The family of this 53-nucleotide RNA from Ipomoea nil is "DUF3800-VI RNA".
By type it is a cis-regulatory element.
Lineage of the source: Eukaryota > Viridiplantae > eudicotyledons > lamiids > Ipomoea.
RNA sequence: GCGUCGGGAGAGCCGCACUGACGCGGCUCGUCGAAGGGUCUUUCGCCCGGCGG
Numbered sequence: 001g002c003g004u005c006g007g008g009a010g011a012g013c014c015g016c017a018c019u020g021a022c023g024c025g026g027c028u029c030g031u032c033g034a035a036g037g038g039u040c041u042u043u044c045g046c047c048c049g050g051c052g053g
Stems, first nucleotide, its partner, number of pairs: 002052007010029007032045005